[Rfam]
RNA sequence: GUACUCCCUCCAUCCCAUAAUAUAAGAGCGUUUCUAACACUAGUAUAGUGUAAAAAAUGCUCUGAUAUUAUGGGACGGAGGGAGUUC
Numbered sequence: 001g002u003a004c005u006c007c008c009u010c011c012a013u014c015c016c017a018u019a020a021u022a023u024a025a026g027a028g029c030g031u032u033u034c035u036a037a038c039a040c041u042a043g044u045a046u047a048g049u050g051u052a053a054a055a056a057a058u059g060c061u062c063u064g065a066u067a068u069u070a071u072g073g074g075a076c077g078g079a080g081g082g083a084g085u086u087c
Stems, first nucleotide, its partner, number of pairs: 003085003007081005013075005019069005025063009035053001037051005
Record summary:
This 87-nucleotide RNA sequence from Aegilops tauschii belongs to the Rfam family "MIR1120/MIR1122 microRNA precursor family". Rfam links the family to the GO terms miRNA-mediated post-transcriptional gene silencing and RISC complex. The literature on the family includes a 2007 paper in Genome Biol by Yao et al., "Cloning and characterization of microRNAs from wheat (Triticum aestivum L.)".